[Rfam]
Nucleotides: 228
Stems, first nucleotide, its partner, number of pairs: 005085013020041004026035003045052002055067004088226002091223001095216006104192011115180001117149004124141006153177003157174002160171002194204003
Number, partner (000 for none) and nucleotide at each position: 001000g002000a003000g004000u005085u006084u007083c008082u009081g010080u011079u012078c013077g014076u015075g016074g017073c018000a019000a020041g021040c022039u023038u024000a025000a026035g027034c028033c029000g030000c031000u032000a033028g034027g035026c036000g037000a038023a039022g040021g041020c042000g043000c044000a045052g046051c047000g048000a049000a050000a051046g052045c053000g054000a055067g056066u057065c058064u059000g060000a061000a062000g063000u064058g065057g066056g067055c068000g069000u070000u071000c072000a073017g074016u075015c076014g077013c078012g079011g080010g081009c082008a083007g084006a085005a086000g087000a088226c089225c090000c091223g092000a093000a094000a095216c096215c097214g098213a099212g100211u101000g102000a103000u104192c105191u106190a107189g108188c109187c110186a111185u112184g113183g114182c115180c116000a117149g118148g119147c120146u121000g122000a123000a124141g125140g126139u127138g128137g129136g130000g131000u132000a133000a134000c135000a136129c137128c138127c139126a140125c141124u142000g143000g144000a145000g146120g147119g148118c149117c150000g151000a152000a153177c154176c155175c156000a157174c158173g159000c160171c161170u162000g163000u164000u165000g166000a167000a168000a169000a170161a171160g172000u173158c174157g175155g176154g177153g178000a179000u180115g181000a182114g183113c184112u185111g186110u187109g188108g189107c190106u191105a192104g193000g194204g195203g196202u197000g198000a199000a200000a201000g202196g203195c204194c205000a206000a207000u208000c209000a210000a211100a212099c213098u214097c215096g216095g217000a218000a219000a220000u221000a222000g223091c224000u225089g226088g227000u228000u

Rfam assigns this 228-nucleotide part of an RNA from Rhodopila globiformis to the family "Bacterial large subunit ribosomal RNA".
Pairs were carried over by alignment from the consensus structure, which is taken from published work.
The match comes from Rfam's covariance-model search (2681 bits).
The organism belongs to Rhodopila, within Bacteria.